[Rfam]
RNA: Small nucleolar RNA Z279/snoR105/snoR108
RNA sequence: AGGAUAUGAUGAGUGGUUAAAACUCACAAAUAUUUGUGAGAGGGGUGUCCAUCCAGGCCUGGUUACGACACAGGGGCACUGUCAUUAUUUACAAAUCUGAUCCC
Numbered sequence: 001a002g003g004a005u006a007u008g009a010u011g012a013g014u015g016g017u018u019a020a021a022a023c024u025c026a027c028a029a030a031u032a033u034u035u036g037u038g039a040g041a042g043g044g045g046u047g048u049c050c051a052u053c054c055a056g057g058c059c060u061g062g063u064u065a066c067g068a069c070a071c072a073g074g075g076g077c078a079c080u081g082u083c084a085u086u087a088u089u090u091a092c093a094a095a096u097c098u099g100a101u102c103c104c
Base pairs, nucleotide, nucleotide: 002103003102004101014094016092017091023040024039025038026037027036042082044080045079046078047077048075049074060073062071063070